[Rfam]
RNA: mir-10 microRNA precursor family
RNA sequence: UAGCAUAAACCCGUAGAUCCGAUCUUGUGGUGAAUUCUUUUGCUCAAGCUCGUUUCUACUGGUCUGUGUCAU
Numbered sequence: 001u002a003g004c005a006u007a008a009a010c011c012c013g014u015a016g017a018u019c020c021g022a023u024c025u026u027g028u029g030g031u032g033a034a035u036u037c038u039u040u041u042g043c044u045c046a047a048g049c050u051c052g053u054u055u056c057u058a059c060u061g062g063u064c065u066g067u068g069u070c071a072u
Stems, first nucleotide, its partner, number of pairs: 003069005010062002015057003020052003024048004029043001